Background: Rfam assigns this 104-nucleotide sequence from Caldanaerobius fijiensis to the family "TPP riboswitch aptamer (THI element)".
RNA sequence: AAUGGAUGCUAGGGGAGCUUCGUAUGAGGCUGAGAGGGGAUUAGUUCCCGACCCUUGGAACCUGUCAGGAUAAUGCCUGCGUAGGGAAGCAUCAAAGUGUUUGA
Numbered sequence: 001a002a003u004g005g006a007u008g009c010u011a012g013g014g015g016a017g018c019u020u021c022g023u024a025u026g027a028g029g030c031u032g033a034g035a036g037g038g039g040a041u042u043a044g045u046u047c048c049c050g051a052c053c054c055u056u057g058g059a060a061c062c063u064g065u066c067a068g069g070a071u072a073a074u075g076c077c078u079g080c081g082u083a084g085g086g087a088a089g090c091a092u093c094a095a096a097g098u099g100u101u102u103g104a
Stems, first nucleotide, its partner, number of pairs: 006092005011055004017030005037048004061085004066079004
It scores 80 bits against the family's covariance model. The organism belongs to Caldanaerobius fijiensis, within Bacteria. The base pairs follow the family's consensus structure, which is taken from published work.